[Rfam]
RNA sequence: AUACUCAUCUUUGGUCAAAAUUCCAUCCUUUGGUCUUCAAAAGCUUGGGGACUUGGAGUGAGUGAUCCCUCACCCUCCUCCAAUAUUUCAAUAGUUUGCCGUGCUUAGCAGCCAUGGUCAUGUCUCACAGAGCUAAAGGAACCAUCUAAGCAAGCAGAGUGUCUCGGCCAAUGUCUAGCAGACCGACAAGUCACAGAACGGCGGGCUCUGUUUAUGAGUCUU
Numbered sequence: 001a002u003a004c005u006c007a008u009c010u011u012u013g014g015u016c017a018a019a020a021u022u023c024c025a026u027c028c029u030u031u032g033g034u035c036u037u038c039a040a041a042a043g044c045u046u047g048g049g050g051a052c053u054u055g056g057a058g059u060g061a062g063u064g065a066u067c068c069c070u071c072a073c074c075c076u077c078c079u080c081c082a083a084u085a086u087u088u089c090a091a092u093a094g095u096u097u098g099c100c101g102u103g104c105u106u107a108g109c110a111g112c113c114a115u116g117g118u119c120a121u122g123u124c125u126c127a128c129a130g131a132g133c134u135a136a137a138g139g140a141a142c143c144a145u146c147u148a149a150g151c152a153a154g155c156a157g158a159g160u161g162u163c164u165c166g167g168c169c170a171a172u173g174u175c176u177a178g179c180a181g182a183c184c185g186a187c188a189a190g191u192c193a194c195a196g197a198a199c200g201g202c203g204g205g206c207u208c209u210g211u212u213u214a215u216g217a218g219u220c221u222u
Base pairs, nucleotide, nucleotide: 055081056080057079094183095182096181097180098179099178113173114172115171204220205219206218207217208216
Early nodulin 40: a 222-nucleotide RNA sequence from Manihot esculenta.
Its family is annotated with nodulation in the Gene Ontology.
A search with the family's covariance model found it, with a score of 72 bits.
Rfam classes the family as a non-coding RNA gene.
Lineage of the source: Eukaryota > Mesangiospermae > fabids > Malpighiales > Manihot.
The literature on the family includes a 2007 paper in Nucleic Acids Res by Gultyaev and Roussis, "Identification of conserved secondary structures and expansion segments in enod40 RNAs reveals new enod40 homologues in plants".